[Rfam]
RNA sequence: AGCCUCUUUCUAGAUGAGAAUGACACUGUUGAUGAUCAUGGUGUCCGAAAAUUGUAAGUAUGGCUAAAUUGAAACAGUUUAUGCUUCCAUAACAGUAUAUAUAUUGCAGUGGUGACAAUGAGACAUGAAAUAUUU
Numbered sequence: 001a002g003c004c005u006c007u008u009u010c011u012a013g014a015u016g017a018g019a020a021u022g023a024c025a026c027u028g029u030u031g032a033u034g035a036u037c038a039u040g041g042u043g044u045c046c047g048a049a050a051a052u053u054g055u056a057a058g059u060a061u062g063g064c065u066a067a068a069u070u071g072a073a074a075c076a077g078u079u080u081a082u083g084c085u086u087c088c089a090u091a092a093c094a095g096u097a098u099a100u101a102u103a104u105u106g107c108a109g110u111g112g113u114g115a116c117a118a119u120g121a122g123a124c125a126u127g128a129a130a131u132a133u134u135u
Stems, first nucleotide, its partner, number of pairs: 002064003008058001021047002023044004075127002088114003092110002
RNA: Small nucleolar RNA SNORA1